[Rfam]
RNA sequence: CGCGUAUUUCGCCCAGGCGGAGCUCGACCGCCGCUUGAAGUCGUAAUGCCAUUCGUGGACGAGCAUCGCUCGCGCUUCGGGGUCGAGCCGAUCUGCAAGACGUUGCAGAUCGCCCCG
Numbered sequence: 001c002g003c004g005u006a007u008u009u010c011g012c013c014c015a016g017g018c019g020g021a022g023c024u025c026g027a028c029c030g031c032c033g034c035u036u037g038a039a040g041u042c043g044u045a046a047u048g049c050c051a052u053u054c055g056u057g058g059a060c061g062a063g064c065a066u067c068g069c070u071c072g073c074g075c076u077u078c079g080g081g082g083u084c085g086a087g088c089c090g091a092u093c094u095g096c097a098a099g100a101c102g103u104u105g106c107a108g109a110u111c112g113c114c115c116c117g
Stems, first nucleotide, its partner, number of pairs: 016032005078117005089112002092109007